Description:
A member of the RNA family "HDV ribozyme from F. prausnitzii" from Rodentolepis nana, 68 nucleotides long. Taxonomically the source falls in Rodentolepis (Eukaryota, Lophotrochozoa, Rhabditophora, Neodermata). Rfam 15.1 lists 3,803 matches to the family in 91 species.
[Rfam]
RNA sequence: GGGGUGCGAUAGACUUACCUCCACGUGGUGCACCCUGGGCAACGUAUGCUCAUACGGCAAAAGUAUAU
Numbered sequence: 001g002g003g004g005u006g007c008g009a010u011a012g013a014c015u016u017a018c019c020u021c022c023a024c025g026u027g028g029u030g031c032a033c034c035c036u037g038g039g040c041a042a043c044g045u046a047u048g049c050u051c052a053u054a055c056g057g058c059a060a061a062a063g064u065a066u067a068u
Stems, first nucleotide, its partner, number of pairs: 001036007017029003043056005